Rfam assigns this 76-nucleotide RNA sequence from Equus caballus to the family "mir-660 microRNA precursor family".

[Rfam]
RNA sequence: UCCUUCUCCUGUACCCAUUGCAUAUCGGAGUUGUGAAUUCUGAAAGCACCUCCUGUGUGCAUGGAUUACAGGAGGG
Numbered sequence: 001u002c003c004u005u006c007u008c009c010u011g012u013a014c015c016c017a018u019u020g021c022a023u024a025u026c027g028g029a030g031u032u033g034u035g036a037a038u039u040c041u042g043a044a045a046g047c048a049c050c051u052c053c054u055g056u057g058u059g060c061a062u063g064g065a066u067u068a069c070a071g072g073a074g075g076g
Stems, first nucleotide, its partner, number of pairs: 002075006015064004020060006027053004032048003
The source organism's lineage runs through Eukaryota, Chordata, Craniata, Equidae and Equus. It is one of the family's seed sequences.